[Rfam]
RNA: MIR1886 microRNA precursor family
Organism: Solanum tuberosum
RNA sequence: GAAAUGGAAUCAGUGUUUGGACAUGCGAUUUCACGUUGAUUCCAUCUCAUG
Numbered sequence: 001g002a003a004a005u006g007g008a009a010u011c012a013g014u015g016u017u018u019g020g021a022c023a024u025g026c027g028a029u030u031u032c033a034c035g036u037u038g039a040u041u042c043c044a045u046c047u048c049a050u051g
Stems, first nucleotide, its partner, number of pairs: 001048002004045013017028003